[Rfam]
Rfam assigns this 315-nucleotide RNA from Dujonia railenensis to the family "Nuclear RNase P".
RNA sequence: AGCGUUUCGCAUUUACCCGCCUACAACAGAAGUGCACCCUAGGUGUGCUAUACCAUGCGGGUGGGAAAUUCGGUGGUUCACUCCGUCUAACGUAAGAAUUUAUUCUUAUGGACUGUAAAUACUGUAAAGUGUUUUUACUCUUGAGAGUUUCCUUAGCGUGUAAACGCUGGGCUUUGCCAUCAGAAAUCAACAGAGCAAGGUUUCUACCUUGUUCUGUAUGGGAGGCAUUGCAGACGGUUGGUCUUCCAGUUAGUGGGGAGGCUUUUCAGUGCAAUAUGCGAACUUGUAUUCAAGCACCCGAUACCGAUCAUCGCU
Numbered sequence: 001a002g003c004g005u006u007u008c009g010c011a012u013u014u015a016c017c018c019g020c021c022u023a024c025a026a027c028a029g030a031a032g033u034g035c036a037c038c039c040u041a042g043g044u045g046u047g048c049u050a051u052a053c054c055a056u057g058c059g060g061g062u063g064g065g066a067a068a069u070u071c072g073g074u075g076g077u078u079c080a081c082u083c084c085g086u087c088u089a090a091c092g093u094a095a096g097a098a099u100u101u102a103u104u105c106u107u108a109u110g111g112a113c114u115g116u117a118a119a120u121a122c123u124g125u126a127a128a129g130u131g132u133u134u135u136u137a138c139u140c141u142u143g144a145g146a147g148u149u150u151c152c153u154u155a156g157c158g159u160g161u162a163a164a165c166g167c168u169g170g171g172c173u174u175u176g177c178c179a180u181c182a183g184a185a186a187u188c189a190a191c192a193g194a195g196c197a198a199g200g201u202u203u204c205u206a207c208c209u210u211g212u213u214c215u216g217u218a219u220g221g222g223a224g225g226c227a228u229u230g231c232a233g234a235c236g237g238u239u240g241g242u243c244u245u246c247c248a249g250u251u252a253g254u255g256g257g258g259a260g261g262c263u264u265u266u267c268a269g270u271g272c273a274a275u276a277u278g279c280g281a282a283c284u285u286g287u288a289u290u291c292a293a294g295c296a297c298c299c300g301a302u303a304c305c306g307a308u309c310a311u312c313g314c315u
Base pairs, nucleotide, nucleotide: 001315002314003313004312006282007281008280009279010278011277012276015062016061017060018059019058032048033047034046035045036044037043071306072305073304074303075302084236085235086234087233137148138147139146140145154169155168156167157166158165159164172230175227176226177225178224190217191216192215193214194213283294284293285292286291

It scores 56 bits against the family's covariance model. The family has 116 seed sequences and 3,848 matches in Rfam 15.1. Rfam classes the family as a ribozyme.